Shown here is a 93-nucleotide sequence, a member of the family "PhotoRC-II RNA". Rfam's curators put it in the seed alignment. Pairs were carried over by alignment from the consensus structure, which is taken from published work. By type it is a cis-regulatory element.
RNA sequence: UGACCCCUUUUUACUUCCCUUACCAAGACUUAACGGGGUUAUAAUUAGUCUUCUUAUCCACCAGUGAAGGGAUUGGUGGAAAUACUGUAUCGU
Number, nucleotide and partner (000 for none) at each position: 001u000002g000003a000004c000005c000006c000007c000008u000009u000010u000011u000012u000013a000014c000015u000016u038017c037018c036019c035020u000021u033022a000023c000024c000025a000026a051027g050028a049029c048030u000031u000032a000033a021034c000035g019036g018037g017038g016039u000040u000041a000042u000043a000044a000045u000046u000047a000048g029049u028050c027051u026052u000053c000054u000055u000056a000057u000058c079059c078060a077061c076062c075063a074064g073065u000066g000067a000068a000069g000070g000071g000072a000073u064074u063075g062076g061077u060078g059079g058080a000081a000082a000083u000084a000085c000086u000087g000088u000089a000090u000091c000092g000093u000